Small nucleolar RNA SNORA9: a 135-nucleotide RNA sequence from Oreochromis aureus. The organism belongs to Oreochromis, within Eukaryota. It scores 111 bits against the family's covariance model. From the family's description: ACA9 is a member of the H/ACA class of snoRNA that guide the sites of modification of uridines to pseudouridines. The family's RNA type in Rfam is H/ACA-box small nucleolar RNA. Rfam links the family to the GO terms nucleolus and RNA processing.

RNA sequence: CUGCAGACCUUUCCAGCGAGGCUCAGCCUGCAGUGGCUCUGUCCUUUCCUCUUGUGUCUGCUAGAGAAAUGUGAGGCUGUUUGAGGCCCUGCUGUGACCCAUCAUGGCAGGGUUAUAGGUAAACCUCAGACAAAG
Number, nucleotide and partner (000 for none) at each position: 001c000002u000003g061004c060005a059006g058007a057008c056009c000010u000011u000012u000013c000014c000015a000016g000017c000018g000019a045020g044021g043022c000023u000024c000025a038026g037027c036028c035029u000030g000031c000032a000033g000034u000035g028036g027037c026038u025039c000040u000041g000042u000043c021044c020045u019046u000047u000048c000049c000050u000051c000052u000053u000054g000055u000056g008057u007058c006059u005060g004061c003062u000063a000064g000065a000066g000067a000068a000069a000070u000071g000072u128073g127074a126075g125076g124077c000078u000079g000080u000081u000082u000083g000084a000085g000086g000087c112088c111089c110090u109091g108092c107093u000094g105095u104096g103097a000098c000099c000100c000101a000102u000103c096104a095105u094106g000107g092108c091109a090110g089111g088112g087113u000114u000115a000116u000117a000118g000119g000120u000121a000122a000123a000124c076125c075126u074127c073128a072129g000130a000131c000132a000133a000134a000135g000